RNA sequence: UAAAGCUAGGUUUGUGGUUGAAAGUCGAUGCCAGUCGCAGGCAAAACGAUCCACGUAAUUUAGACAAAAUGUCUAAGGAGCAUGGUGCGGUAUAGAAGUAAGUCCUGCCAGUUAAAUCUGAGAGGGUUAGUAGUGAGGAAUUAAUUUUUAGUAGCGAAAUCUCCAGCAGGCGAGUGUGGGGUCAAAGACCAGGUCAACUAGCUUUA
Numbered sequence: 001u002a003a004a005g006c007u008a009g010g011u012u013u014g015u016g017g018u019u020g021a022a023a024g025u026c027g028a029u030g031c032c033a034g035u036c037g038c039a040g041g042c043a044a045a046a047c048g049a050u051c052c053a054c055g056u057a058a059u060u061u062a063g064a065c066a067a068a069a070u071g072u073c074u075a076a077g078g079a080g081c082a083u084g085g086u087g088c089g090g091u092a093u094a095g096a097a098g099u100a101a102g103u104c105c106u107g108c109c110a111g112u113u114a115a116a117u118c119u120g121a122g123a124g125g126g127u128u129a130g131u132a133g134u135g136a137g138g139a140a141u142u143a144a145u146u147u148u149u150a151g152u153a154g155c156g157a158a159a160u161c162u163c164c165a166g167c168a169g170g171c172g173a174g175u176g177u178g179g180g181g182u183c184a185a186a187g188a189c190c191a192g193g194u195c196a197a198c199u200a201g202c203u204u205u206a
Stems, first nucleotide, its partner, number of pairs: 001206009012197003015191005028177003031041001034091006050085002059076002063072001083184001104170005109120003124163003133155002139146002

Shown here is a 206-nucleotide RNA from Clostridium butyricum, a member of the family "raiA RNA". It is one of the family's seed sequences. The organism belongs to Clostridium butyricum, within Bacteria. It is annotated as a riboswitch. The base pairs follow the family's consensus structure, which is taken from published work.